[Rfam]
Annotation: The record is a 194-nucleotide RNA from Culex quinquefasciatus, which matches "U12 minor spliceosomal RNA" in Rfam. Its family is annotated with mRNA branch site recognition, U12 snRNP and pre-mRNA branch point binding in the Gene Ontology. Rfam's curators put it in the seed alignment. Rfam classes the family as a spliceosomal small nuclear RNA. Pairs were carried over by alignment from the consensus structure. Lineage of the source: Eukaryota > Panarthropoda > Mandibulata > Culicinae > Culex pipiens complex.

RNA sequence: GUGCCUUAAACUAAUGAGUAAGGAAAAUUAAGAGCACUGUUAGCGCUUUGCUCAGCUUCCGCACAUUGGGCCGAACUUCCCGAAUGGGAUUCGGUUUCGUAAGCAGAAAUUUUUCCUAGAGGUACAGGUCGUCCCCUCGCAGUCGUCGCCGCCUACUUUUGCGGCGAUACUCGGGCGUGCCAGCGAUCUGCCUC
Dot-bracket structure: ...(((((..........)))))........(((((..(......)..))))).((((..........................................))))..............(((((..(((((((..((....(((....(((((........)))))...)))..)).......))))))))))))